The family of this 136-nucleotide RNA sequence is "ZMP/ZTP riboswitch aptamer (pfl RNA motif)". Pairs were carried over by alignment from the consensus structure, which is taken from published work. It scores 50 bits against the family's covariance model.

RNA sequence: UUCACCCUGCGUGACUGGCGACUCUAGGCUUCGGGGCCUAGGUGGGUUUACCACAAGGAAGCGCAGGGUUUCGGCGGUUAGGUUCGUCCCGUCCGGGGCGUGGCCGCGCCGCCCGCCGUUCGCCUGGGCAGCCGUU
Numbered sequence: 001u002u003c004a005c006c007c008u009g010c011g012u013g014a015c016u017g018g019c020g021a022c023u024c025u026a027g028g029c030u031u032c033g034g035g036g037c038c039u040a041g042g043u044g045g046g047u048u049u050a051c052c053a054c055a056a057g058g059a060a061g062c063g064c065a066g067g068g069u070u071u072c073g074g075c076g077g078u079u080a081g082g083u084u085c086g087u088c089c090c091g092u093c094c095g096g097g098g099c100g101u102g103g104c105c106g107c108g109c110c111g112c113c114c115g116c117c118g119u120u121c122g123c124c125u126g127g128g129c130a131g132c133c134g135u136u
Base pairs, nucleotide, nucleotide: 004069005068006067007066008065009064010063011062012061015058016057017124018123019122020121021120042054043053044052045051113131115129116128117127